Annotation: Rfam assigns this 101-nucleotide sequence from Paenibacillus baekrokdamisoli to the family "Purine riboswitch aptamer".

[Rfam]
Nucleotides: 101
Base pairs, nucleotide, nucleotide: 020085021084022083023082024081025080030048031047032046033045034044035043058077059076060075061074062073063071
Number, partner (000 for none) and nucleotide at each position: 001000g002000a003000u004000u005000u006000a007000g008000a009000c010000u011000a012000a013000u014000u015000u016000a017000u018000c019000c020085c021084u022083c023082g024081u025080a026000u027000a028000u029000a030048c031047u032046c033045a034044g035043g036000a037000a038000u039000a040000a041000g042000g043035c044034c045033u046032g047031a048030g049000a050000g051000u052000a053000u054000c055000u056000a057000c058077c059076c060075g061074g062073a063071a064000c065000c066000a067000u068000u069000a070000a071063u072000u073062u074061u075060c076059g077058g078000a079000c080025u081024a082023c083022g084021a085020g086000c087000c088000u089000a090000u091000g092000a093000u094000a095000c096000g097000a098000a099000g100000a101000a
The source organism's lineage runs through Bacteria, Bacillati, Bacilli, Paenibacillaceae and Paenibacillus. Clan: Purine riboswitches.